[Rfam]
RNA sequence: CUUUCCAGCAAAGCCGUACGCCACAUCAACUCCGUGUGGCAAGACUUGCUGGAAGACA
Number, nucleotide and partner (000 for none) at each position: 001c000002u000003u000004u053005c052006c051007a050008g049009c048010a047011a046012a000013g000014c043015c000016g000017u000018a000019c000020g000021c039022c038023a037024c036025a035026u034027c000028a000029a000030c000031u000032c000033c000034g026035u025036g024037u023038g022039g021040c000041a000042a000043g014044a000045c000046u011047u010048g009049c008050u007051g006052g005053a004054a000055g000056a000057c000058a000